[Rfam]
A member of the RNA family "Molybdenum/Tungsten riboswitch aptamer (Moco RNA motif)" from Clostridium butyricum, 162 nucleotides long. NCBI's taxonomy places the organism under Bacteria, Bacillota, Clostridia, Clostridiaceae, Clostridium butyricum. The match comes from Rfam's covariance-model search (74 bits).

RNA sequence: UAAUUAAAUAAUCUCCGAACAACUGUAUCUAAGGAGUAAAUCUAUGAUGCUUUUGUCAAGCAGAAUGUAUGAUGAUAGUUUAAUAUACUACAUUUUGUUUCAGGGUUCUAUGGGAAACUAUAUUGCCUUCCGUGUUUGAAAAGGAGGAUUAUUUAAACUAAA
Dot-bracket structure: ...(.(.....(((((..((((..(((((...(((.....)))..)))))..)))).((((((((((((...................))))))))))))..((((..(((((....)))))..))))((.......))...))))).....).).......
Numbered sequence: 001u002a003a004u005u006a007a008a009u010a011a012u013c014u015c016c017g018a019a020c021a022a023c024u025g026u027a028u029c030u031a032a033g034g035a036g037u038a039a040a041u042c043u044a045u046g047a048u049g050c051u052u053u054u055g056u057c058a059a060g061c062a063g064a065a066u067g068u069a070u071g072a073u074g075a076u077a078g079u080u081u082a083a084u085a086u087a088c089u090a091c092a093u094u095u096u097g098u099u100u101c102a103g104g105g106u107u108c109u110a111u112g113g114g115a116a117a118c119u120a121u122a123u124u125g126c127c128u129u130c131c132g133u134g135u136u137u138g139a140a141a142a143g144g145a146g147g148a149u150u151a152u153u154u155a156a157a158c159u160a161a162a
Stems, first nucleotide, its partner, number of pairs: 004155001006153001012147005019056004025050005033043003058100012103128004109122005129139002